Annotation:
A member of the RNA family "Acido-Lenti-1 RNA" from Roseimaritima ulvae, 46 nucleotides long. The family's RNA type in Rfam is small RNA. The family's consensus secondary structure is taken from published work. It scores 45 bits against the family's covariance model.

[Rfam]
RNA sequence: UCUAGGGCUCACGCCCUAGGCUUUAUGCUGCCGCCGCUCUGCGGCU
Number, nucleotide and partner (000 for none) at each position: 001u020002c019003u018004a017005g016006g015007g014008c013009u000010c000011a000012c000013g008014c007015c006016c005017u004018a003019g002020g001021c000022u000023u000024u000025a000026u000027g000028c000029u000030g000031c000032c000033g045034c044035c043036g042037c041038u000039c000040u000041g037042c036043g035044g034045c033046u000